[Rfam]
RNA: Archaeal large subunit ribosomal RNA, nucleotides 778 to 1139
Organism: Triticum urartu
RNA sequence: GAAAUGCGUUGAGGCGCAGCAGUUGACUGGACAUCUAGGGGUAAAGCACUGUUUCGGUGCGGGCUGCGCGAGCGGUACCAAAUCGAGGCAAACUCUGAAUACUAGAUAUGACCCAAAAAUAACAGGGGUCAAGGUCGGCCAGUGAGACGAUGGGGGAUAAGCUUCAUCGUCGAGAGGGAAACAGCCCGGAUCACCAGCUAAGGCCCCUAAAUGACCGCUCAGUGAUAAAGGAGGUGGGGGUGCAAAGACAGCCAGGAGGUUUGCCUAGAAGCAGCCACCCUUUAAAGAGUGCGUAAUAGCUCACUGAUCGAGCGCCCUUGCGCUGAAGAUGAACGGGGCUAAGCGAUCUGCCGAAGCUGUGG
Numbered sequence: 001g002a003a004a005u006g007c008g009u010u011g012a013g014g015c016g017c018a019g020c021a022g023u024u025g026a027c028u029g030g031a032c033a034u035c036u037a038g039g040g041g042u043a044a045a046g047c048a049c050u051g052u053u054u055c056g057g058u059g060c061g062g063g064c065u066g067c068g069c070g071a072g073c074g075g076u077a078c079c080a081a082a083u084c085g086a087g088g089c090a091a092a093c094u095c096u097g098a099a100u101a102c103u104a105g106a107u108a109u110g111a112c113c114c115a116a117a118a119a120u121a122a123c124a125g126g127g128g129u130c131a132a133g134g135u136c137g138g139c140c141a142g143u144g145a146g147a148c149g150a151u152g153g154g155g156g157a158u159a160a161g162c163u164u165c166a167u168c169g170u171c172g173a174g175a176g177g178g179a180a181a182c183a184g185c186c187c188g189g190a191u192c193a194c195c196a197g198c199u200a201a202g203g204c205c206c207c208u209a210a211a212u213g214a215c216c217g218c219u220c221a222g223u224g225a226u227a228a229a230g231g232a233g234g235u236g237g238g239g240g241u242g243c244a245a246a247g248a249c250a251g252c253c254a255g256g257a258g259g260u261u262u263g264c265c266u267a268g269a270a271g272c273a274g275c276c277a278c279c280c281u282u283u284a285a286a287g288a289g290u291g292c293g294u295a296a297u298a299g300c301u302c303a304c305u306g307a308u309c310g311a312g313c314g315c316c317c318u319u320g321c322g323c324u325g326a327a328g329a330u331g332a333a334c335g336g337g338g339c340u341a342a343g344c345g346a347u348c349u350g351c352c353g354a355a356g357c358u359g360u361g362g
Stems, first nucleotide, its partner, number of pairs: 005018005020142001022139005033107006044096001045094002051089008062078001063076005146171007154164002176187003191362003195359004202352003211349001213348002216345003230324002234321010251308001253306003257281003263275002282286001287302001291300002